[Rfam]
This 112-nucleotide RNA from Amphiprion ocellaris belongs to the Rfam family "U5 spliceosomal RNA". Gene Ontology terms of the family: spliceosomal tri-snRNP complex assembly and U5 snRNP.
RNA sequence: CCACUCUGGUUUCUCUUCAUAGCACAAGUCUUCGCCUUUUUACUAAAGACUUCCGUGGAAGUGACUCCAACGAAUUUAGCCUAUUUUGGCAGGCUUUGCUCUGGCAGAGCCG
Numbered sequence: 001c002c003a004c005u006c007u008g009g010u011u012u013c014u015c016u017u018c019a020u021a022g023c024a025c026a027a028g029u030c031u032u033c034g035c036c037u038u039u040u041u042a043c044u045a046a047a048g049a050c051u052u053c054c055g056u057g058g059a060a061g062u063g064a065c066u067c068c069a070a071c072g073a074a075u076u077u078a079g080c081c082u083a084u085u086u087u088g089g090c091a092g093g094c095u096u097u098g099c100u101c102u103g104g105c106a107g108a109g110c111c112g
Base pairs, nucleotide, nucleotide: 003075005073006072009065010064011063013061014060016059017058018057019056026052027051028050029049030048031047032045090112092111093110094109095108096107097106